[Rfam]
A member of the RNA family "U7 small nuclear RNA" from Vicugna pacos, 62 nucleotides long. A search with the family's covariance model found it, with a score of 49 bits.

RNA sequence: AAAUGUGGCAGCUUUUGUAGAAUUUGUCUCGCAGGUUUUCCGGUCCACACAGGAAGGCCCCC
Dot-bracket structure: .................................((((((((.((....)).))))))))...